RNA sequence: UGCCGUCGCCACGGGAGUCCAGCGCGCUGGGCUGAGAGGAGGGGCGAAUCCCCUCGACCGUCCGCACCUGAACCGGAUCAUGCCGGCGCAGGGAGGUGUCGCGAUCAGCUC
Number, nucleotide and partner (000 for none) at each position: 001u000002g000003c000004c000005g000006u000007c098008g097009c096010c095011a061012c060013g059014g058015g000016a000017g032018u031019c030020c029021a028022g000023c000024g000025c000026g000027c000028u021029g020030g019031g018032c017033u000034g000035a000036g000037a000038g000039g055040a054041g053042g052043g051044g000045c000046g000047a000048a000049u000050c000051c043052c042053c041054u040055c039056g000057a000058c014059c013060g012061u011062c000063c000064g000065c000066a000067c092068c091069u090070g089071a000072a000073c086074c085075g084076g083077a000078u000079c000080a000081u000082g000083c076084c075085g074086g073087c000088g000089c070090a069091g068092g067093g000094a000095g010096g009097u008098g007099u000100c000101g000102c000103g000104a000105u000106c000107a000108g000109c000110u000111c000